The family of this 78-nucleotide RNA from Schistosoma haematobium is "mir-3492 microRNA precursor family". Lineage of the source: Eukaryota > Trematoda > Strigeidida > Schistosomatoidea > Schistosoma. Pairs were carried over by alignment from the consensus structure, which was predicted with RNAalifold. Rfam links the family to the GO terms miRNA-mediated post-transcriptional gene silencing and RISC complex. The family has 2 seed sequences and 21,496 matches in Rfam 15.1.
RNA sequence: AGCUUUUCAAAUCCGUGCAGAGAUUUCGUCAGACACCAACCCAUUAGGGCUGACUAGACUUCCGAGAUAAUUGAAAUU
Number, nucleotide and partner (000 for none) at each position: 001a000002g077003c000004u075005u074006u073007u000008c000009a000010a000011a068012u067013c066014c000015g000016u064017g063018c000019a000020g061021a060022g059023a000024u058025u057026u056027c000028g054029u053030c052031a000032g000033a000034c000035a000036c000037c000038a000039a000040c000041c000042c000043a000044u000045u000046a000047g000048g000049g000050c000051u000052g030053a029054c028055u000056a026057g025058a024059c022060u021061u020062c000063c017064g016065a000066g013067a012068u011069a000070a000071u000072u000073g006074a005075a004076a000077u002078u000